Shown here is a 102-nucleotide RNA sequence from Bacillus licheniformis, a member of the family "Purine riboswitch aptamer". Rfam links the family to the GO term purine nucleobase biosynthetic process.

RNA sequence: AGUAAUUUAAAAAAGACUUGUCGUAUAAUCAUGGGGAUAUGGCCCAUAAGUUUCUACCAAGCUACCGUAAAUAGCUUGACUACGCUUGUAUACAAUAUUUUA
Numbered sequence: 001a002g003u004a005a006u007u008u009a010a011a012a013a014a015g016a017c018u019u020g021u022c023g024u025a026u027a028a029u030c031a032u033g034g035g036g037a038u039a040u041g042g043c044c045c046a047u048a049a050g051u052u053u054c055u056a057c058c059a060a061g062c063u064a065c066c067g068u069a070a071a072u073a074g075c076u077u078g079a080c081u082a083c084g085c086u087u088g089u090a091u092a093c094a095a096u097a098u099u100u101u102a
Base pairs, nucleotide, nucleotide: 018088020086022084023083024082025081029049031047032046033045034044035043058078059077060076061075062074063073064072